Shown here is a 144-nucleotide RNA sequence from Miscanthus lutarioriparius, a member of the family "Small nucleolar RNA snoR136". A reference for the family is Chen and Wu (2009), "Mining small RNA sequencing data: a new approach to identify small nucleolar RNAs in Arabidopsis", Nucleic Acids Res. NCBI's taxonomy places the organism under Eukaryota, Spermatophyta, Andropogonodae, Andropogoneae, Miscanthus. By type it is an H/ACA-box small nucleolar RNA.
[Rfam]
RNA sequence: UUUGUGCUGCUUCUCUUGGUUCAUGCCCAUGAGCUGUUUUUGGUUCAUGAGCUUUGGAAUGGUGAAGCAAAAGUCUCAGUGGUUCCUCUCGCUAUCCAGCUCAGAUUUUUGUUUGAUGCUGCUGGACGUCGAGGAACUAUAUUC
Dot-bracket structure: (((((.(..(.(..((.((.....((.((((((((......)))))))).)))).)).).)..)..))).)).........(((((((.((...(((((.(((..........))).....)))))))..))))))).......